[Rfam]
RNA sequence: UUCGUUCAUCCAAAGCCUAUGGCUUUUGCCAGGUUUAGGACGGAAGUAGGUAGCGGCUCAGCUGUUACGCGAAGGAACGUACC
Numbered sequence: 001u002u003c004g005u006u007c008a009u010c011c012a013a014a015g016c017c018u019a020u021g022g023c024u025u026u027u028g029c030c031a032g033g034u035u036u037a038g039g040a041c042g043g044a045a046g047u048a049g050g051u052a053g054c055g056g057c058u059c060a061g062c063u064g065u066u067a068c069g070c071g072a073a074g075g076a077a078c079g080u081a082c083c
Stems, first nucleotide, its partner, number of pairs: 003079005009040003013036006043080001049070001

The family of this 83-nucleotide RNA sequence from Leptolyngbya sp. Heron Island J is "Glutamine riboswitch aptamer (glnA leader)". Its family is annotated with glutamine binding in the Gene Ontology. It scores 36 bits against the family's covariance model. The source organism's lineage runs through Bacteria, Cyanophyceae, Leptolyngbyales, Leptolyngbyaceae and Leptolyngbya.